[Rfam]
A member of the RNA family "Small nucleolar RNA SNORD58" from Pomacea canaliculata, 74 nucleotides long. A search with the family's covariance model found it, with a score of 45 bits. Lineage of the source: Eukaryota > Bilateria > Lophotrochozoa > Gastropoda > Pomacea. The family has 33 seed sequences and 2,484 matches in Rfam 15.1. By type it is a C/D-box small nucleolar RNA. Rfam links the family to the GO terms nucleolus and RNA processing. Rfam describes the family as follows. snoRNA U58 is found in introns 1, 3 and 6 of the ribosomal protein RPL17 gene in humans.
RNA sequence: UUGCAAUGAUGAAAAUCUUAGGACACCUUAAGAUAAAUAAUGAUACAAACUAAGCGUUACCAUGACUGAGCAGC
Numbered sequence: 001u002u003g004c005a006a007u008g009a010u011g012a013a014a015a016u017c018u019u020a021g022g023a024c025a026c027c028u029u030a031a032g033a034u035a036a037a038u039a040a041u042g043a044u045a046c047a048a049a050c051u052a053a054g055c056g057u058u059a060c061c062a063u064g065a066c067u068g069a070g071c072a073g074c
Stems, first nucleotide, its partner, number of pairs: 001073004